[Rfam]
RNA sequence: UUAUUCCUUUGGGGCAGGGUGUAAUUCCCGACCGACGGUGAUAAGCUUUCAAGCUUUCAGUCCGUGACCCGGAUCAUUUUUAUAAUGUGAAGGUGGAUUUGGUGAAAUUCCAAAGCCGACAGUUAAAGUCUGGAUGAGAAAAGGAAUCG
Numbered sequence: 001u002u003a004u005u006c007c008u009u010u011g012g013g014g015c016a017g018g019g020u021g022u023a024a025u026u027c028c029c030g031a032c033c034g035a036c037g038g039u040g041a042u043a044a045g046c047u048u049u050c051a052a053g054c055u056u057u058c059a060g061u062c063c064g065u066g067a068c069c070c071g072g073a074u075c076a077u078u079u080u081u082a083u084a085a086u087g088u089g090a091a092g093g094u095g096g097a098u099u100u101g102g103u104g105a106a107a108u109u110c111c112a113a114a115g116c117c118g119a120c121a122g123u124u125a126a127a128g129u130c131u132g133g134a135u136g137a138g139a140a141a142a143g144g145a146a147u148c149g
Stems, first nucleotide, its partner, number of pairs: 003147008017029003031129002033118002035065004060116002069093002098114005120132003

Shown here is a 149-nucleotide RNA sequence from Gracilibacillus halotolerans, a member of the family "FMN riboswitch aptamer (RFN element)". Lineage of the source: Bacteria > Bacillati > Bacilli > Bacillaceae > Gracilibacillus. It scores 117 bits against the family's covariance model. The base pairs follow the family's consensus structure, which is taken from published work. A reference for the family is Vitreschak et al. (2002), "Regulation of riboflavin biosynthesis and transport genes in bacteria by transcriptional and translational attenuation", Nucleic Acids Res.